[Rfam]
RNA sequence: CCCGCCUACAAAGGCAUAUCUUGGGUUCCUUGUCUUUGGACACUCAAUUUUUUUGGAGACAAAAAAAUUGUGGAUUUCGCGACAUCUGGGCCAGCUUGUUCCCUGCAGGUUCCAGAUCAGCCAUCUCACAUAA
Numbered sequence: 001c002c003c004g005c006c007u008a009c010a011a012a013g014g015c016a017u018a019u020c021u022u023g024g025g026u027u028c029c030u031u032g033u034c035u036u037u038g039g040a041c042a043c044u045c046a047a048u049u050u051u052u053u054u055g056g057a058g059a060c061a062a063a064a065a066a067a068u069u070g071u072g073g074a075u076u077u078c079g080c081g082a083c084a085u086c087u088g089g090g091c092c093a094g095c096u097u098g099u100u101c102c103c104u105g106c107a108g109g110u111u112c113c114a115g116a117u118c119a120g121c122c123a124u125c126u127c128a129c130a131u132a133a
Base pairs, nucleotide, nucleotide: 003058005056006055017042019040020039021038024030025029072126073125074124076123093111094110095109096108097107098106099105
The family of this 133-nucleotide RNA sequence from Octodon degus is "Small nucleolar RNA SNORA38".
Rfam classes the family as an H/ACA-box small nucleolar RNA.
ACA38 is a member of the H/ACA class of snoRNA that guide the sites of modification of uridines to pseudouridines.
Pairs were carried over by alignment from the consensus structure, which was predicted with RNAfold.
It scores 76 bits against the family's covariance model.
NCBI's taxonomy places the organism under Eukaryota, Mammalia, Boreoeutheria, Octodontidae, Octodon.